[Rfam]
RNA: THF (Tetrahydrofolate) riboswitch aptamer
RNA sequence: AGCAAAGUAGAAUAAUAUGCGUUAAGUGUCUAGUGAACGGGGAGUUGUCACUAGAACGAAAAGCUUAGGCUUGCGGUAUAUUGUUCGCAUCCCGUUGCU
Numbered sequence: 001a002g003c004a005a006a007g008u009a010g011a012a013u014a015a016u017a018u019g020c021g022u023u024a025a026g027u028g029u030c031u032a033g034u035g036a037a038c039g040g041g042g043a044g045u046u047g048u049c050a051c052u053a054g055a056a057c058g059a060a061a062a063g064c065u066u067a068g069g070c071u072u073g074c075g076g077u078a079u080a081u082u083g084u085u086c087g088c089a090u091c092c093c094g095u096u097g098c099u
Stems, first nucleotide, its partner, number of pairs: 001099005010086010020075003026057002029055008040092003044088001061072004